[Rfam]
RNA sequence: UUUUGUAUGAUCGAUGGUCAGGUGUUUUCUGUCGGCGGGCAGGGCACCACUCCCUCGUUCUGCCAAAGGCAGACCGCCAU
Numbered sequence: 001u002u003u004u005g006u007a008u009g010a011u012c013g014a015u016g017g018u019c020a021g022g023u024g025u026u027u028u029c030u031g032u033c034g035g036c037g038g039g040c041a042g043g044g045c046a047c048c049a050c051u052c053c054c055u056c057g058u059u060c061u062g063c064c065a066a067a068g069g070c071a072g073a074c075c076g077c078c079a080u
Base pairs, nucleotide, nucleotide: 024047025046027044028043029042030041031040032039034078035077036076037075038074060072061071062070063069064068
The record is an 80-nucleotide RNA from Synechococcus sp. SynAce01, which matches "Cyanobacterial ribosomal protein S1 leader" in Rfam.
For this family Rfam cites "Identification of 22 candidate structured RNAs in bacteria using the CMfinder comparative genomics pipeline" (Weinberg et al., Nucleic Acids Res, 2007).
Rfam's curators write: cyano-S1 is a ncRNA recognized in the 5-prime region of genes encoding 30S ribosomal protein S1, it has been proposed as an cis regulation element.
The family's consensus secondary structure is taken from published work.
Lineage of the source: Bacteria > Cyanobacteriota > Cyanophyceae > Synechococcales > Synechococcus.